[Rfam]
RNA: c-di-AMP riboswitch aptamer (ydaO/yuaA leader)
Organism: Paenibacillus nasutitermitis
RNA sequence: AAACAAGAAACGCUGAGUUUCCUUAAAGGGGAACGGGGGAACCACAUGUAUGGUUGGCUGCUGAUGUGAGAGUCAGACGCCAUCCGUCAGGGGUGAAUCGCGAGGGGCCGGACGUCUGGUUUUCGUCCCGUUGCGUAGGGCGACUCUCACCGCCCGAAUCCGACAGCUAACCUCGUAAGCGUACCGGAAGCUAUC
Numbered sequence: 001a002a003a004c005a006a007g008a009a010a011c012g013c014u015g016a017g018u019u020u021c022c023u024u025a026a027a028g029g030g031g032a033a034c035g036g037g038g039g040a041a042c043c044a045c046a047u048g049u050a051u052g053g054u055u056g057g058c059u060g061c062u063g064a065u066g067u068g069a070g071a072g073u074c075a076g077a078c079g080c081c082a083u084c085c086g087u088c089a090g091g092g093g094u095g096a097a098u099c100g101c102g103a104g105g106g107g108c109c110g111g112a113c114g115u116c117u118g119g120u121u122u123u124c125g126u127c128c129c130g131u132u133g134c135g136u137a138g139g140g141c142g143a144c145u146c147u148c149a150c151c152g153c154c155c156g157a158a159u160c161c162g163a164c165a166g167c168u169a170a171c172c173u174c175g176u177a178a179g180c181g182u183a184c185c186g187g188a189a190g191c192u193a194u195c
Base pairs, nucleotide, nucleotide: 011181012180013179014178018032019031020030033176034175035174036173037172038171043090091161092160093159099135100134101133102132138155139154140153141152